[Rfam]
RNA sequence: GGUGUUUUUCAUUCCACCUAAAUCGAAAUGU
Numbered sequence: 001g002g003u004g005u006u007u008u009u010c011a012u013u014c015c016a017c018c019u020a021a022a023u024c025g026a027a028a029u030g031u
Base pairs, nucleotide, nucleotide: 001018002017003016004015010030011029012028013027014025
About this RNA:
Pseudoknot of upstream pseudoknot domain (UPD) of the 3'UTR: a 31-nucleotide RNA sequence from Pomovirus solibetae. Gene Ontology term of the family: regulation of viral transcription. For this family Rfam cites "Five pseudoknots are present at the 204 nucleotides long 3' noncoding region of tobacco mosaic virus RNA" (van Belkum et al., Nucleic Acids Res, 1985).